The record is a 61-nucleotide sequence from Fukomys damarensis, which matches "Small nucleolar RNA Z39" in Rfam. It scores 84 bits against the family's covariance model. Its family is annotated with RNA processing and nucleolus in the Gene Ontology. Rfam classes the family as a C/D-box small nucleolar RNA. The source organism's lineage runs through Eukaryota, Deuterostomia, Craniata, Bathyergidae and Fukomys.
RNA sequence: GCACAUAUGAUGAAGCAAAUCAGUAUGAAUAGUCAUGAUACUGUAAACGCUUUCUGAUGUG
Number, nucleotide and partner (000 for none) at each position: 001g000002c061003a060004c059005a058006u000007a000008u000009g000010a000011u000012g053013a052014a051015g050016c049017a000018a000019a000020u000021c043022a042023g041024u040025a039026u038027g000028a000029a000030u000031a000032g000033u000034c000035a000036u000037g000038a026039u025040a024041c023042u022043g021044u000045a000046a000047a000048c000049g016050c015051u014052u013053u012054c000055u000056g000057a000058u005059g004060u003061g002